[Rfam]
RNA sequence: AUCGAGAAAGCCGAAAAUCGAAACAAAGAGUAGGUG
Numbered sequence: 001a002u003c004g005a006g007a008a009a010g011c012c013g014a015a016a017a018u019c020g021a022a023a024c025a026a027a028g029a030g031u032a033g034g035u036g
Stems, first nucleotide, its partner, number of pairs: 002021004010035003
RNA: DUF805b RNA